[Rfam]
RNA sequence: GUGAUUAAAAUAGUCAUGCCGUAGACAGUAGGAGCGUGUACGCUUAAAUAUCCUACCGAGGUGAGCAAAUAGAUCUCUUGUAAUUUAGAGUGAAUUGCCCUCGUGUGUCGAACGCGAGGGCUUUCUAUAUGAGCCG
Numbered sequence: 001g002u003g004a005u006u007a008a009a010a011u012a013g014u015c016a017u018g019c020c021g022u023a024g025a026c027a028g029u030a031g032g033a034g035c036g037u038g039u040a041c042g043c044u045u046a047a048a049u050a051u052c053c054u055a056c057c058g059a060g061g062u063g064a065g066c067a068a069a070u071a072g073a074u075c076u077c078u079u080g081u082a083a084u085u086u087a088g089a090g091u092g093a094a095u096u097g098c099c100c101u102c103g104u105g106u107g108u109c110g111a112a113c114g115c116g117a118g119g120g121c122u123u124u125c126u127a128u129a130u131g132a133g134c135c136g
Base pairs, nucleotide, nucleotide: 028056029055030054031053032052033051034043035042036041097121098120099119100118101117102116103115104114105113106112
Dot-bracket structure: ...........................(((((((((....))).......))))))........................................((((((((((.....))))))))))...............

The record is a 136-nucleotide RNA sequence from Shouchella oshimensis, which matches "Ribosomal protein L10 leader" in Rfam. A reference for the family is Iben and Draper (2008), "Specific interactions of the L10(L12)4 ribosomal protein complex with mRNA, rRNA, and L11", Biochemistry. Rfam describes the family as follows. This family is a putative r-protein leader autoregulatory structure found in B. subtilis and other low-GC Gram-positive bacteria. It scores 85 bits against the family's covariance model. The source organism's lineage runs through Bacteria, Bacillati, Bacilli, Shouchella and Shouchella oshimensis. Pairs were carried over by alignment from the consensus structure, which was predicted with CMfinder.